[Rfam]
RNA sequence: UGUUCUCCUGGCGACUGGCGAUAAAGUGGAGUACCACGAGGAAGCCGGGAGGAUCUAACCCUAUAACAGUCGUUCGCCUGGGCUGGAUGU
Numbered sequence: 001u002g003u004u005c006u007c008c009u010g011g012c013g014a015c016u017g018g019c020g021a022u023a024a025a026g027u028g029g030a031g032u033a034c035c036a037c038g039a040g041g042a043a044g045c046c047g048g049g050a051g052g053a054u055c056u057a058a059c060c061c062u063a064u065a066a067c068a069g070u071c072g073u074u075c076g077c078c079u080g081g082g083c084u085g086g087a088u089g090u
Base pairs, nucleotide, nucleotide: 003053004052005051006050007049008048009047010046011045012044015041016040017078018077019076020075021074026037027036028035029034067085068084069083070082071081
A member of the RNA family "ZMP/ZTP riboswitch aptamer (pfl RNA motif)" from Dictyobacter arantiisoli, 90 nucleotides long. Its family is annotated with one-carbon metabolic process and regulation of purine nucleotide biosynthetic process in the Gene Ontology.